[Rfam]
The record is a 252-nucleotide RNA sequence from Enterovirus betacoxsackie, which matches "Picornavirus internal ribosome entry site (IRES)" in Rfam.
Taxonomically the source falls in Enterovirus B (Viruses, Riboviria, Pisoniviricetes, Enterovirus).
The sequence is in the family's curated seed alignment.
About the family: This family represents the Picornavirus internal ribosome entry site (IRES). IRES elements allow cap and end-independent translation of mRNA in the host cell. It has been found that La autoantigen (La) is required for Coxsackievirus B3 (CVB3) IRES-mediated translation, and it has been suggested that La may be required for the efficient translation of the viral RNA in the pancreas.
RNA sequence: AUGGGACGCUUCAAUACUGACAUGGUGCGAACAGUCUACUGAGCUAGUUGGUAGUCCUCCGGCCCCUGAAUGCGGCUAAUCCUAACUGCGGAGCAGGUACCCACGAGCCAGUGGGCAGCCUGUCGUAAUGGGCAACUCUGCAGCGGAACCGACUACUUUGGGUGUCCGUGUUUCCAUUUACUCUUAUACUGGCUGCUUAUGGUGACAAUCACGGAAUUGUUACCAUAUAGCUAUUGGAUUGGCCAUCCAGUG
Dot-bracket structure: ...(((...))).......((...)).......((......(((((...((........(((.(((......(((....(((...(((((((.(((((.(((((......))))).).))))(((...))).....))))))).))).)))........)))...))).............))......))))))).(((((((((((((...)).))))))))))).........................